[Rfam]
RNA sequence: UUGAUACCUAACUGGAAAUUCUUAAAGCAUUCCCAUCAUCAAAAUGAUGUGAAAAUUAGGAAUGCUUUAAGAAUUUCAGUUAUGCAUCA
Numbered sequence: 001u002u003g004a005u006a007c008c009u010a011a012c013u014g015g016a017a018a019u020u021c022u023u024a025a026a027g028c029a030u031u032c033c034c035a036u037c038a039u040c041a042a043a044a045u046g047a048u049g050u051g052a053a054a055a056u057u058a059g060g061a062a063u064g065c066u067u068u069a070a071g072a073a074u075u076u077c078a079g080u081u082a083u084g085c086a087u088c089a
Base pairs, nucleotide, nucleotide: 002089003088004087005086007084009082010081011080012079013078014077015076016075018074019073020072021071022070023069024068025067026066027065028064029063030062031061032060033059035057039052040051041050
RNA: MIR1512 microRNA precursor family
Organism: Glycine max